[Rfam]
Shown here is an 89-nucleotide RNA sequence from Microbacterium sp. SYP-A9085, a member of the family "Glycine riboswitch aptamer". About the family: This family represents the bacterial glycine riboswitch. The match comes from Rfam's covariance-model search (61 bits). Taxonomically the source falls in Microbacterium (Bacteria, Bacillati, Actinomycetes, Micrococcales). Its family is annotated with glycine biosynthetic process in the Gene Ontology.
RNA sequence: AUGACGCGCGCGGGAGAGUCCGGUCCGCCGGACACCGAAGGAGCAAGCCUCCCCGCCAAUCUCUCAGGUCCGCAUACCGUGUGCGUCCG
Numbered sequence: 001a002u003g004a005c006g007c008g009c010g011c012g013g014g015a016g017a018g019u020c021c022g023g024u025c026c027g028c029c030g031g032a033c034a035c036c037g038a039a040g041g042a043g044c045a046a047g048c049c050u051c052c053c054c055g056c057c058a059a060u061c062u063c064u065c066a067g068g069u070c071c072g073c074a075u076a077c078c079g080u081g082u083g084c085g086u087c088c089g
Stems, first nucleotide, its partner, number of pairs: 006084008019032004034069003037065002041063003047056002